RNA: mir-331 microRNA precursor family
Organism: Pongo pygmaeus
RNA sequence: GAGUUUGGUUUUGUUUGGGUUUGUUCUAGGUAUGGUCCCAGGGAUCCCAGAUCAAACCAGGCCCCUGGGCCUAUCCUAAACAACCUAA
Number, nucleotide and partner (000 for none) at each position: 001g000002a000003g000004u000005u000006u000007g000008g000009u000010u000011u000012u000013g000014u000015u088016u087017g086018g085019g084020u083021u082022u000023g000024u000025u080026c000027u078028a077029g076030g075031u000032a074033u073034g072035g071036u000037c069038c068039c067040a066041g065042g064043g063044a000045u000046c000047c061048c060049a000050g000051a000052u000053c000054a000055a000056a000057c000058c000059a000060g048061g047062c000063c043064c042065c041066u040067g039068g038069g037070c000071c035072u034073a033074u032075c030076c029077u028078a027079a000080a025081c000082a021083a020084c019085c018086u017087a016088a015